A member of the RNA family "Purine riboswitch aptamer" from Laceyella tengchongensis, 102 nucleotides long.
RNA sequence: AAAUUUAGUUGUUCGCCCACCCGUAUAUGUUUAGGAAUAAGGCCUGAACGUCUCUACCCGGCUACCGAAAAUAGCUGGACUACGGUUGAUGGGGCGCCGGGA
Numbered sequence: 001a002a003a004u005u006u007a008g009u010u011g012u013u014c015g016c017c018c019a020c021c022c023g024u025a026u027a028u029g030u031u032u033a034g035g036a037a038u039a040a041g042g043c044c045u046g047a048a049c050g051u052c053u054c055u056a057c058c059c060g061g062c063u064a065c066c067g068a069a070a071a072u073a074g075c076u077g078g079a080c081u082a083c084g085g086u087u088g089a090u091g092g093g094g095c096g097c098c099g100g101g102a
Stems, first nucleotide, its partner, number of pairs: 018088002021085005029049007058078007
About the family: Riboswitches are metabolite binding domains within certain messenger RNAs that serve as precision sensors for their corresponding targets.